This 110-nucleotide sequence from Mycobacterium avium belongs to the Rfam family "TPP riboswitch aptamer (THI element)". A search with the family's covariance model found it, with a score of 56 bits. On this family, see Rodionov et al., J Biol Chem 2002: "Comparative genomics of thiamin biosynthesis in procaryotes. New genes and regulatory mechanisms". The source organism's lineage runs through Bacteria, Actinomycetota, Actinomycetes, Mycobacteriaceae and Mycobacterium avium subsp. paratuberculosis. Gene Ontology term of the family: thiamine pyrophosphate binding.

RNA sequence: CGUUUUAGACACGGGAGUCCCGGGACCGGGGUCUGAGAGUGGGCGCGCCCGCCCUUACCGUCACACCUGAUCCGGAUCAUGCCGGCGAAGGGAGGCCGCGAAUGCCCUCG
Numbered sequence: 001c002g003u004u005u006u007a008g009a010c011a012c013g014g015g016a017g018u019c020c021c022g023g024g025a026c027c028g029g030g031g032u033c034u035g036a037g038a039g040u041g042g043g044c045g046c047g048c049c050c051g052c053c054c055u056u057a058c059c060g061u062c063a064c065a066c067c068u069g070a071u072c073c074g075g076a077u078c079a080u081g082c083c084g085g086c087g088a089a090g091g092g093a094g095g096c097c098g099c100g101a102a103u104g105c106c107c108u109c110g
Stems, first nucleotide, its partner, number of pairs: 006098001008096001010094001011061004016055001017033001019031003041054004066091003072085004